[Rfam]
RNA sequence: UCUAGAACUCGAGGUAUGGGCUGAACACUAAACAGUGUCUGGGUUGCAGGAUAGAUUCAGACUUCUCUGUUGUUGCUAUAAUUUAGACUUGAAAACGGCGUUCUUAGAUCUUGGCCUUCAUGUGAAAGUUGUAGGCCUAUGUCUUACUGAAUCUGUA
Numbered sequence: 001u002c003u004a005g006a007a008c009u010c011g012a013g014g015u016a017u018g019g020g021c022u023g024a025a026c027a028c029u030a031a032a033c034a035g036u037g038u039c040u041g042g043g044u045u046g047c048a049g050g051a052u053a054g055a056u057u058c059a060g061a062c063u064u065c066u067c068u069g070u071u072g073u074u075g076c077u078a079u080a081a082u083u084u085a086g087a088c089u090u091g092a093a094a095a096c097g098g099c100g101u102u103c104u105u106a107g108a109u110c111u112u113g114g115c116c117u118u119c120a121u122g123u124g125a126a127a128g129u130u131g132u133a134g135g136c137c138u139a140u141g142u143c144u145u146a147c148u149g150a151a152u153c154u155g156u157a
Stems, first nucleotide, its partner, number of pairs: 003155004009146001011145010021134003025130001027129003035123003041119003048112005054105002060099001062098002068092001072088003
Notes:
This 157-nucleotide RNA sequence from Populus tomentosa belongs to the Rfam family "MIR2912 microRNA precursor family". Taxonomically the source falls in Populus (Eukaryota, Viridiplantae, Malpighiales, Salicaceae). The base pairs follow the family's consensus structure, which was predicted with RNAalifold.